[Rfam]
RNA sequence: AUGUUCGGGCAAUCGCUGCAUCACUUUGUGAUGUUGAGGAAAGUCCAUGCUCGCACGAUCUGUAAUGAUCGUAGUGUUCGUGCCUAGCCAAUAAAUAAGCUAGGGUAGUUCGGUUUCAACUGGACUAACGGCAAGGGAACUUCCUAAGUCUUCGGAUAUGGUUUAGUACCUUUGAAAGUGCCACAGUGACGAAGUCCUAUUGGAAACGGUAGGAGUGGAACGAGGUAAACCCCACGAGCGAGAAACCCAAACGAUGGUAGGGGCAUCUACUCAAAGGAAUAAAACGGAGAGUAGGCAAGUAAGAUUUCUUACUUGAGAUAGAUGGUUGCCACCUGAGUACGAGGCGCAAGCCGCUUGCAGUACGACGGAACAAAACAUGGCUUACAGAA
Numbered sequence: 001a002u003g004u005u006c007g008g009g010c011a012a013u014c015g016c017u018g019c020a021u022c023a024c025u026u027u028g029u030g031a032u033g034u035u036g037a038g039g040a041a042a043g044u045c046c047a048u049g050c051u052c053g054c055a056c057g058a059u060c061u062g063u064a065a066u067g068a069u070c071g072u073a074g075u076g077u078u079c080g081u082g083c084c085u086a087g088c089c090a091a092u093a094a095a096u097a098a099g100c101u102a103g104g105g106u107a108g109u110u111c112g113g114u115u116u117c118a119a120c121u122g123g124a125c126u127a128a129c130g131g132c133a134a135g136g137g138a139a140c141u142u143c144c145u146a147a148g149u150c151u152u153c154g155g156a157u158a159u160g161g162u163u164u165a166g167u168a169c170c171u172u173u174g175a176a177a178g179u180g181c182c183a184c185a186g187u188g189a190c191g192a193a194g195u196c197c198u199a200u201u202g203g204a205a206a207c208g209g210u211a212g213g214a215g216u217g218g219a220a221c222g223a224g225g226u227a228a229a230c231c232c233c234a235c236g237a238g239c240g241a242g243a244a245a246c247c248c249a250a251a252c253g254a255u256g257g258u259a260g261g262g263g264c265a266u267c268u269a270c271u272c273a274a275a276g277g278a279a280u281a282a283a284a285c286g287g288a289g290a291g292u293a294g295g296c297a298a299g300u301a302a303g304a305u306u307u308c309u310u311a312c313u314u315g316a317g318a319u320a321g322a323u324g325g326u327u328g329c330c331a332c333c334u335g336a337g338u339a340c341g342a343g344g345c346g347c348a349a350g351c352c353g354c355u356u357g358c359a360g361u362a363c364g365a366c367g368g369a370a371c372a373a374a375a376c377a378u379g380g381c382u383u384a385c386a387g388a389a
Stems, first nucleotide, its partner, number of pairs: 004389003007385001008330007016036001018034004041383003045380005050242005055072006078237005083104006105129001106127009130232002133172004143161002148157003178230002180226003195214008246262003266295007296315008332368002337363004
This 389-nucleotide sequence from Lottiidibacillus patelloidae belongs to the Rfam family "Bacterial RNase P class B". The match comes from Rfam's covariance-model search (327 bits). The family's RNA type in Rfam is ribozyme. Gene Ontology terms of the family: tRNA processing, ribonuclease P activity and dimeric ribonuclease P complex. Clan: RNaseP clan. On this family, see Brown, Nucleic Acids Res 1999: "The Ribonuclease P Database".